[Rfam]
The family of this 143-nucleotide RNA from Evansella cellulosilytica is "ylbH leader". The literature on the family includes a 2004 paper in Proc Natl Acad Sci U S A by Barrick et al., "New RNA motifs suggest an expanded scope for riboswitches in bacterial genetic control". The match comes from Rfam's covariance-model search (90 bits). Rfam classes the family as a cis-regulatory leader. Pairs were carried over by alignment from the consensus structure. This family is a putative regulatory RNA structure that is found upstream of the ylbH gene in B. subtilis and related low GC Gram-positive bacteria.

RNA sequence: GUAAAAAAAAACCCGCAGAUUACUCUGCGGGCUGCCUCAUAACUUCAAUAAAAAGUGAGUAUAUCACCUAGUAUGAAGUUAAGGCUAUGGGAGAGGAGAAACCGGAGGAAGAACUUAUGGGGAAACGUAAGCCUUCUCCGCGG
Numbered sequence: 001g002u003a004a005a006a007a008a009a010a011a012c013c014c015g016c017a018g019a020u021u022a023c024u025c026u027g028c029g030g031g032c033u034g035c036c037u038c039a040u041a042a043c044u045u046c047a048a049u050a051a052a053a054a055g056u057g058a059g060u061a062u063a064u065c066a067c068c069u070a071g072u073a074u075g076a077a078g079u080u081a082a083g084g085c086u087a088u089g090g091g092a093g094a095g096g097a098g099a100a101a102c103c104g105g106a107g108g109a110a111g112a113a114c115u116u117a118u119g120g121g122g123a124a125a126c127g128u129a130a131g132c133c134u135u136c137u138c139c140g141c142g143g
Stems, first nucleotide, its partner, number of pairs: 012031008033091001035089001037087001042079006103140004108136004114131004